[Rfam]
RNA sequence: GGCCAGGAGUGCUGUCGAUCACGGUGCGUUGGACGAUUGUUCCACUUGGCCU
Dot-bracket structure: (((((((.(((((((.....)))))))..((((......).)))))))))).